[Rfam]
RNA sequence: UUAAGUUAACCACAUAAUAUUGUCAUCGCCUUUAAUUAUAUGCAUCAAUCUCAAGUAGAAAAUAUCUGAUGUUUUACGAUUUAUUGAGGUGAAUGCGUAUAAUUAAAUGAGAUGACAUAUAUUAUGUGGCUAACUUAACU
Numbered sequence: 001u002u003a004a005g006u007u008a009a010c011c012a013c014a015u016a017a018u019a020u021u022g023u024c025a026u027c028g029c030c031u032u033u034a035a036u037u038a039u040a041u042g043c044a045u046c047a048a049u050c051u052c053a054a055g056u057a058g059a060a061a062a063u064a065u066c067u068g069a070u071g072u073u074u075u076a077c078g079a080u081u082u083a084u085u086g087a088g089g090u091g092a093a094u095g096c097g098u099a100u101a102a103u104u105a106a107a108u109g110a111g112a113u114g115a116c117a118u119a120u121a122u123u124a125u126g127u128g129g130c131u132a133a134c135u136u137a138a139c140u
Stems, first nucleotide, its partner, number of pairs: 001138008010129011021117004027111001029109001031107015048090006